[Rfam]
Nucleotides: 114
Base pairs, nucleotide, nucleotide: 013029014028015027016026017025075114076113077112078111079110086109087108089106090105091104092103093102095100
Number, partner (000 for none) and nucleotide at each position: 001000g002000g003000c004000u005000u006000u007000c008000u009000u010000c011000g012000c013029g014028g015027c016026g017025g018000a019000g020000c021000u022000c023000g024000a025017c026016c027015g028014c029013c030000c031000g032000u033000c034000g035000c036000c037000c038000a039000g040000g041000u042000a043000g044000u045000g046000g047000c048000g049000u050000u051000c052000a053000u054000c055000g056000a057000c058000g059000c060000c061000c062000a063000c064000c065000g066000u067000g068000c069000c070000g071000a072000g073000u074000u075114c076113g077112g078111g079110g080000u081000c082000g083000a084000g085000c086109c087108g088000a089106u090105c091104u092103g093102u094000c095100g096000c097000c098000a099000g100095c101000u102093g103092c104091a105090g106089a107000u108087c109086g110079c111078c112077c113076c114075g

A member of the RNA family "ALIL pseudoknot" from Cellulosimicrobium sp. CUA-896, 114 nucleotides long. Rfam 15.1 lists 2,146 matches to the family in 1,098 species. A reference for the family is Mazauric et al. (2008), "Apical loop-internal loop RNA pseudoknots: a new type of stimulator of -1 translational frameshifting in bacteria", J Biol Chem. By type it is a cis-regulatory element.